[Rfam]
RNA: Gammaproteobacterial sRNA STnc100
RNA sequence: GUUUGCGGGGAGUUUGUUAAAAGAAACUGGCAUGGUGAAUCCCCCUGUGCGGAGGGGCAAUCAGCGAGUAGGUAUAUGGGAUAAUCGCGGAUUCAGGUGCUGGUACUGAAUUCACCGGGAGGCACCCGGCACCAUGCAAUGGCACAUAGCGCCACUCUCCAGCCCCUCUCCGGAGGGGCUUUUCUGUGCCG
Numbered sequence: 001g002u003u004u005g006c007g008g009g010g011a012g013u014u015u016g017u018u019a020a021a022a023g024a025a026a027c028u029g030g031c032a033u034g035g036u037g038a039a040u041c042c043c044c045c046u047g048u049g050c051g052g053a054g055g056g057g058c059a060a061u062c063a064g065c066g067a068g069u070a071g072g073u074a075u076a077u078g079g080g081a082u083a084a085u086c087g088c089g090g091a092u093u094c095a096g097g098u099g100c101u102g103g104u105a106c107u108g109a110a111u112u113c114a115c116c117g118g119g120a121g122g123c124a125c126c127c128g129g130c131a132c133c134a135u136g137c138a139a140u141g142g143c144a145c146a147u148a149g150c151g152c153c154a155c156u157c158u159c160c161a162g163c164c165c166c167u168c169u170c171c172g173g174a175g176g177g178g179c180u181u182u183u184c185u186g187u188g189c190c191g
Stems, first nucleotide, its partner, number of pairs: 015144002030137008042057005078088001080086001089113004094108003115129005150191002153188001161180007